[Rfam]
RNA sequence: GAGCGGACACCGCUGAGUCGCCCUCGUCCCCUGGGCCGCGGGCGAGCCGGGGACCCACCGCACCACCGGGGUGAGUCCCGGACCGGACCUCCGUCCGGCCGGGUAGGGCACUUCUGAGCCCGAAUCCGUCAGCUAACUCGGUAAGCGGUAUCGGAAGAACGG
Numbered sequence: 001g002a003g004c005g006g007a008c009a010c011c012g013c014u015g016a017g018u019c020g021c022c023c024u025c026g027u028c029c030c031c032u033g034g035g036c037c038g039c040g041g042g043c044g045a046g047c048c049g050g051g052g053a054c055c056c057a058c059c060g061c062a063c064c065a066c067c068g069g070g071g072u073g074a075g076u077c078c079c080g081g082a083c084c085g086g087a088c089c090u091c092c093g094u095c096c097g098g099c100c101g102g103g104u105a106g107g108g109c110a111c112u113u114c115u116g117a118g119c120c121c122g123a124a125u126c127c128g129u130c131a132g133c134u135a136a137c138u139c140g141g142u143a144a145g146c147g148g149u150a151u152c153g154g155a156a157g158a159a160c161g162g
Base pairs, nucleotide, nucleotide: 011147012146013145014144018045019044020043021042022041023040046142047141048140049139050138051137056068069127070126071125077103078102079101080100106121107120108119109118

Shown here is a 162-nucleotide sequence from Blastococcus sp. TF02-09, a member of the family "c-di-AMP riboswitch aptamer (ydaO/yuaA leader)". The source organism's lineage runs through Bacteria, Actinomycetes, Geodermatophilales, Geodermatophilaceae and Blastococcus.